The record is a 79-nucleotide sequence from Medicago truncatula, which matches "MIR2617 microRNA precursor family" in Rfam.
[Rfam]
Nucleotides: 079
Base pairs, nucleotide, nucleotide: 002079003078004077005076006074007073008072010070011069012068013067014066016065017064018063019062020061021060
Number, partner (000 for none) and nucleotide at each position: 001000a002079u003078g004077u005076a006074g007073u008072g009000u010070g011069a012068c013067a014066u015000g016065c017064c018063c019062g020061u021060u022000u023000g024000g025000g026000u027000u028000a029000u030000u031000a032000c033000u034000c035000u036000g037000a038000u039000g040000c041000a042000a043000u044000a045000u046000u047000u048000a049000u050000u051000g052000a053000u054000u055000u056000u057000g058000g059000g060021a061020a062019c063018g064017g065016g066014g067013u068012g069011u070010u071000u072008c073007a074006u075000u076005u077004a078003c079002a